RNA sequence: GGACUGCGAUGAAGCGAAAGGUUGCUUAGUCAAUGAUUUGGGGAAUUUUCGCUGAGAAUGUCCGUUCAAGAAUCGGGCGACAG
Numbered sequence: 001g002g003a004c005u006g007c008g009a010u011g012a013a014g015c016g017a018a019a020g021g022u023u024g025c026u027u028a029g030u031c032a033a034u035g036a037u038u039u040g041g042g043g044a045a046u047u048u049u050c051g052c053u054g055a056g057a058a059u060g061u062c063c064g065u066u067c068a069a070g071a072a073u074c075g076g077g078c079g080a081c082a083g
Stems, first nucleotide, its partner, number of pairs: 014052003018049004025042005059082004064078004

S10-Clostridia ribosomal protein leader: an 83-nucleotide RNA sequence from Marinisporobacter balticus. The source organism's lineage runs through Bacteria, Bacillati, Peptostreptococcales, Thermotaleaceae and Marinisporobacter. Pairs were carried over by alignment from the consensus structure, which is taken from published work. The literature on the family includes a 2020 paper in BMC Microbiol by Eckert and Weinberg, "Discovery of 20 novel ribosomal leader candidates in bacteria and archaea".